[Rfam]
RNA sequence: UCUCAGCUGCUUCAUUUAUGAAGCAAUGAAGUAGCUUGGAACUACACGUCAUUUCACUAUGACAGUAUAACUGUUAUAAAAUACAAUCACAACACCUAUUGCGUGAAGUGGUGGUGGUCUUUCAAGAAGGUGAAAUGGCUACUUAUG
Numbered sequence: 001u002c003u004c005a006g007c008u009g010c011u012u013c014a015u016u017u018a019u020g021a022a023g024c025a026a027u028g029a030a031g032u033a034g035c036u037u038g039g040a041a042c043u044a045c046a047c048g049u050c051a052u053u054u055c056a057c058u059a060u061g062a063c064a065g066u067a068u069a070a071c072u073g074u075u076a077u078a079a080a081a082u083a084c085a086a087u088c089a090c091a092a093c094a095c096c097u098a099u100u101g102c103g104u105g106a107a108g109u110g111g112u113g114g115u116g117g118u119c120u121u122u123c124a125a126g127a128a129g130g131u132g133a134a135a136u137g138g139c140u141a142c143u144u145a146u147g
Stems, first nucleotide, its partner, number of pairs: 001040003005036012048139010058117001086112005093105003
Source information:
RT-16 RNA: a 147-nucleotide RNA. It is annotated as a small RNA.